[Rfam]
RNA sequence: UCUCCCAUCGGUAAUGGAUUCUGCCUGGCAUCAAGCCGAACCGCUUCCUUGAAGAAGCUGAUGACUCCUACUCAACG
Numbered sequence: 001u002c003u004c005c006c007a008u009c010g011g012u013a014a015u016g017g018a019u020u021c022u023g024c025c026u027g028g029c030a031u032c033a034a035g036c037c038g039a040a041c042c043g044c045u046u047c048c049u050u051g052a053a054g055a056a057g058c059u060g061a062u063g064a065c066u067c068c069u070a071c072u073c074a075a076c077g
Base pairs, nucleotide, nucleotide: 010025011024012023013022016068017067018066020064021063043058044057045056046055

A member of the RNA family "Fluoride riboswitch aptamer (crcB RNA motif)" from Rhizobium oryziradicis, 77 nucleotides long. The family's consensus secondary structure is taken from published work. Lineage of the source: Bacteria > Pseudomonadota > Alphaproteobacteria > Rhizobiaceae > Rhizobium.